[Rfam]
The family of this 73-nucleotide RNA sequence is "HDV ribozyme from F. prausnitzii". A reference for the family is Webb et al. (2009), "Widespread occurrence of self-cleaving ribozymes", Science. Its family is annotated with catalytic activity in the Gene Ontology.

RNA sequence: GCUGCUCGUAAUAAUCACACACCUCUUCCUGGGAACACCAGUCUACGAUCGUAUGAUCGGCGAAGAUGUGAUG
Numbered sequence: 001g002c003u004g005c006u007c008g009u010a011a012u013a014a015u016c017a018c019a020c021a022c023c024u025c026u027u028c029c030u031g032g033g034a035a036c037a038c039c040a041g042u043c044u045a046c047g048a049u050c051g052u053a054u055g056a057u058c059g060g061c062g063a064a065g066a067u068g069u070g071a072u073g
Stems, first nucleotide, its partner, number of pairs: 001039001003037002006034002022032002046059005